[Rfam]
RNA: U7 small nuclear RNA
Organism: Prolemur simus
RNA sequence: CAGUGGUGCAGCUCUUUUAGAAUUUGUCUAGCAGGUUUUCCAGUUCUCACCGGAAGAUUCCCCC
Numbered sequence: 001c002a003g004u005g006g007u008g009c010a011g012c013u014c015u016u017u018u019a020g021a022a023u024u025u026g027u028c029u030a031g032c033a034g035g036u037u038u039u040c041c042a043g044u045u046c047u048c049a050c051c052g053g054a055a056g057a058u059u060c061c062c063c064c
Stems, first nucleotide, its partner, number of pairs: 034061002037056005043050002